[Rfam]
RNA: mir-210 microRNA precursor family
Organism: Ceutorhynchus assimilis
Nucleotides: 097
Stems, first nucleotide, its partner, number of pairs: 005083002007080005015072008025061002028059006035052002
Number, partner (000 for none) and nucleotide at each position: 001000a002000a003000g004000a005083a006082u007080c008079u009078c010077a011076c012000u013000g014000c015072a016071g017070c018069u019068g020067c021066u022065g023000g024000a025061c026060g027000c028059u029058g030057c031056a032055c033054a034000a035052g036051a037000g038000a039000g040000a041000u042000u043000u044000u045000a046000a047000a048000a049000a050000c051036u052035c053000u054033u055032g056031u057030g058029c059028g060026u061025g062000u063000g064000a065022c066021a067020g068019c069018g070017g071016c072015u073000a074000u075000u076011g077010u078009g079008g080007g081000u082006a083005u084000u085000c086000u087000u088000a089000u090000u091000c092000u093000a094000c095000a096000a097000a